[Rfam]
RNA sequence: GACAUCCAGUGCUCCUCUGUUGAACUCAAGAGAGGAAUCUGUGUUGACUUCAACAGGAGCAAGACUCAGGCCU
Numbered sequence: 001g002a003c004a005u006c007c008a009g010u011g012c013u014c015c016u017c018u019g020u021u022g023a024a025c026u027c028a029a030g031a032g033a034g035g036a037a038u039c040u041g042u043g044u045u046g047a048c049u050u051c052a053a054c055a056g057g058a059g060c061a062a063g064a065c066u067c068a069g070g071c072c073u
Base pairs, nucleotide, nucleotide: 003070005069008066009065010064013061015059016058017057018055019054020053021052022051023050024049026047027046028045029044031042